[Rfam]
RNA sequence: AAAUAGAAUUAAAUAAUUGCUUAUAUAAUAGCCGAAAUAAGGUUGGCAAGUUUCUACCUAGGGACCGUAAAUCUCUGGACUAUAAGCAUAUGAUUUUAUAUU
Numbered sequence: 001a002a003a004u005a006g007a008a009u010u011a012a013a014u015a016a017u018u019g020c021u022u023a024u025a026u027a028a029u030a031g032c033c034g035a036a037a038u039a040a041g042g043u044u045g046g047c048a049a050g051u052u053u054c055u056a057c058c059u060a061g062g063g064a065c066c067g068u069a070a071a072u073c074u075c076u077g078g079a080c081u082a083u084a085a086g087c088a089u090a091u092g093a094u095u096u097u098a099u100a101u102u
Stems, first nucleotide, its partner, number of pairs: 018088008029049001031047005058078007